Guanidine-II riboswitch aptamer (mini-ykkC): a 45-nucleotide RNA sequence from Klebsiella indica. Gene Ontology term of the family: regulation of gene expression. The match comes from Rfam's covariance-model search (37 bits).
[Rfam]
RNA sequence: CUUACGGGACGACCCGUGAGCGCUUCACAUUCGGGGACGACUCCA
Dot-bracket structure: ((((((((....))))))))............((((....)))).